[Rfam]
RNA sequence: AAUCAUACAGAAGGAGCUCUCUCGUCAGUGUCGGUGGGUUUUCAGACUGCGUUCUGCCAUGGCAGCCUUUUGGUGGAGUCGUGUUUACGAAGGUACUGGGGUCAUUAUGGGAUCGUCAGCUCACGAAACAGUCUUCACCUUUGCAAUGGCCGUUGUUGCAGGAGGAUACUUGCGGUUGGUGUUGGAAGCAUCACCGGGACCCAUCUCGAGUUGGAGUCAAAGUUUCGUGCUUGUCUGGUGCUGUGAAAGACCCUUUUGUCAAGUUGAAUUUCACGACUCUGGCCGCACUGUUGAGGCUGGGUUGCAUUGUUGGAUCUAGGACAGGCCUUUGUUGGGUAGGGUAGUCCUGGCUGUUCUCUCGCCUGAAAAUGGUGUGGAGGACAGCCCCCCGCGGUGAGG
Number, nucleotide and partner (000 for none) at each position: 001a000002a000003u000004c000005a000006u000007a000008c000009a000010g000011a000012a000013g000014g000015a000016g000017c000018u000019c000020u000021c000022u000023c000024g000025u000026c000027a000028g000029u000030g000031u000032c000033g000034g000035u000036g000037g000038g000039u000040u000041u000042u000043c000044a000045g000046a000047c000048u000049g000050c000051g000052u000053u000054c000055u000056g000057c000058c000059a000060u000061g000062g000063c000064a000065g000066c000067c000068u000069u000070u000071u000072g000073g000074u000075g000076g000077a000078g000079u000080c000081g000082u000083g000084u000085u000086u000087a000088c000089g000090a000091a000092g000093g000094u000095a000096c000097u000098g000099g000100g000101g000102u000103c000104a000105u000106u000107a000108u000109g000110g000111g000112a000113u000114c000115g000116u000117c000118a000119g000120c000121u000122c000123a000124c000125g000126a000127a000128a000129c000130a000131g000132u000133c000134u000135u000136c000137a000138c000139c000140u000141u000142u000143g000144c000145a000146a000147u000148g000149g000150c000151c000152g000153u000154u000155g000156u000157u000158g000159c000160a000161g000162g000163a000164g000165g000166a000167u000168a000169c000170u000171u000172g000173c000174g000175g000176u000177u000178g000179g000180u000181g000182u000183u000184g000185g000186a000187a000188g000189c000190a000191u000192c000193a000194c000195c000196g000197g000198g218199a217200c216201c214202c213203a212204u000205c000206u000207c000208g000209a000210g000211u000212u203213g202214g201215a000216g200217u199218c198219a000220a232221a231222g230223u229224u000225u000226c000227g000228u000229g223230c222231u221232u220233g000234u000235c000236u000237g000238g000239u000240g000241c000242u000243g000244u000245g000246a000247a000248a000249g000250a000251c000252c000253c000254u000255u000256u000257u000258g000259u000260c000261a000262a000263g000264u000265u000266g000267a000268a000269u000270u000271u000272c000273a000274c000275g000276a000277c000278u000279c000280u000281g000282g000283c000284c000285g000286c000287a000288c000289u000290g000291u000292u000293g000294a000295g000296g000297c000298u000299g000300g000301g000302u000303u000304g000305c000306a000307u000308u000309g000310u000311u000312g000313g000314a000315u000316c000317u000318a000319g000320g000321a000322c000323a000324g000325g000326c000327c000328u000329u000330u000331g000332u000333u000334g000335g000336g000337u000338a000339g000340g000341g000342u000343a000344g000345u000346c000347c000348u000349g000350g000351c000352u000353g000354u000355u000356c000357u000358c000359u000360c000361g000362c000363c000364u000365g000366a000367a000368a000369a000370u000371g000372g000373u000374g000375u000376g000377g000378a000379g000380g000381a000382c000383a000384g000385c000386c000387c000388c000389c000390c000391g000392c000393g000394g000395u000396g000397a000398g000399g000
A member of the RNA family "Ascomycota telomerase RNA" from Fusarium globosum, 399 nucleotides of a longer RNA. Rfam links the family to the GO terms telomerase catalytic core complex, telomerase activity and telomere maintenance via telomerase. The pairing is the family consensus, mapped onto this sequence. It is annotated as a non-coding RNA gene. The match comes from Rfam's covariance-model search (355 bits). The organism belongs to Fusarium fujikuroi species complex, within Eukaryota.